About this RNA: A member of the RNA family "Glycine riboswitch aptamer" from Desulfotomaculum nigrificans, 99 nucleotides long. It scores 40 bits against the family's covariance model. Gene Ontology term of the family: glycine biosynthetic process. For this family Rfam cites "A glycine-dependent riboswitch that uses cooperative binding to control gene expression" (Mandal et al., Science, 2004). Lineage of the source: Bacteria > Bacillati > Eubacteriales > Desulfotomaculaceae > Desulfotomaculum nigrificans.

RNA sequence: UGACUCUGGAGAGCUCCUGCUUAACUGGGCAGUGCGGGACACCAAAGGGGAAACUUCUGAAACAUGAGGUCAUCUCUCAGGUUAAAGGACAGAGUUAUA
Dot-bracket structure: ((((((((......((((((.............)))))).(((.(..(((...((((........))))....))))..))).......))))))))..